[Rfam]
The record is a 183-nucleotide RNA sequence from Thermanaerosceptrum fracticalcis, which matches "Lysine riboswitch aptamer" in Rfam.
The source organism's lineage runs through Bacteria, Bacillota, Clostridia, Peptococcaceae and Thermanaerosceptrum.
A search with the family's covariance model found it, with a score of 89 bits.

RNA sequence: GAGUGGGGUAGGGGCGCGGAUUGUCAAGAGUAAGCCGGGGAGUGGGGACACUAUGAACCGGUGGAAAGGGGCAUCCGCCGAAGUGUAGAUGACUAUCCAGGUCUCUAUGCUGGGGUUGCAUUGAAGAAAUGCAGAACUGUCAUCUGGUAAGGGCCCGUUACCAGGUGGAGCACUAUCUCACUA
Numbered sequence: 001g002a003g004u005g006g007g008g009u010a011g012g013g014g015c016g017c018g019g020a021u022u023g024u025c026a027a028g029a030g031u032a033a034g035c036c037g038g039g040g041a042g043u044g045g046g047g048a049c050a051c052u053a054u055g056a057a058c059c060g061g062u063g064g065a066a067a068g069g070g071g072c073a074u075c076c077g078c079c080g081a082a083g084u085g086u087a088g089a090u091g092a093c094u095a096u097c098c099a100g101g102u103c104u105c106u107a108u109g110c111u112g113g114g115g116u117u118g119c120a121u122u123g124a125a126g127a128a129a130u131g132c133a134g135a136a137c138u139g140u141c142a143u144c145u146g147g148u149a150a151g152g153g154c155c156c157g158u159u160a161c162c163a164g165g166u167g168g169a170g171c172a173c174u175a176u177c178u179c180a181c182u183a
Stems, first nucleotide, its partner, number of pairs: 006178006016078006023072003034062005082111008091103004112138002116134007140168010